[Rfam]
The record is a 76-nucleotide sequence from Mariprofundus ferrinatatus, which matches "SAH (S-adenosyl-L-homocysteine) riboswitch aptamer" in Rfam.

RNA sequence: CGGACUGAGGAGCACUGCAGUGCCGCAAAGGCGGCACCAGGCUCAGUCGAAAAAUGUUCAACGGUGCUCAUAUUUU
Numbered sequence: 001c002g003g004a005c006u007g008a009g010g011a012g013c014a015c016u017g018c019a020g021u022g023c024c025g026c027a028a029a030g031g032c033g034g035c036a037c038c039a040g041g042c043u044c045a046g047u048c049g050a051a052a053a054a055u056g057u058u059c060a061a062c063g064g065u066g067c068u069c070a071u072a073u074u075u076u
Base pairs, nucleotide, nucleotide: 003048004047005046006045007044008043021036022035023034024033025032026031